Shown here is a 125-nucleotide RNA sequence from Alistipes sp. CAG:831, a member of the family "FMN riboswitch aptamer (RFN element)". The organism belongs to Alistipes, within Bacteria. The match comes from Rfam's covariance-model search (109 bits).
RNA sequence: AAUAUCUCUCAGGGCAGGGUGCGAUUCCCUACCGGCGGUGACAGUCCGCGACUCCCUGAUAACCAGGGACUGAAUCGGUGAAAUUCCGAUACCGACGGUGACAGUCCGGAUGGAAGAGAGGUCAU
Numbered sequence: 001a002a003u004a005u006c007u008c009u010c011a012g013g014g015c016a017g018g019g020u021g022c023g024a025u026u027c028c029c030u031a032c033c034g035g036c037g038g039u040g041a042c043a044g045u046c047c048g049c050g051a052c053u054c055c056c057u058g059a060u061a062a063c064c065a066g067g068g069a070c071u072g073a074a075u076c077g078g079u080g081a082a083a084u085u086c087c088g089a090u091a092c093c094g095a096c097g098g099u100g101a102c103a104g105u106c107c108g109g110a111u112g113g114a115a116g117a118g119a120g121g122u123c124a125u
Base pairs, nucleotide, nucleotide: 004122005121006120007119008118009117010116017029018028019027031105032104033094034093035049036048037047038046044092045091053069054068074090075089076088077087078086096108097107098106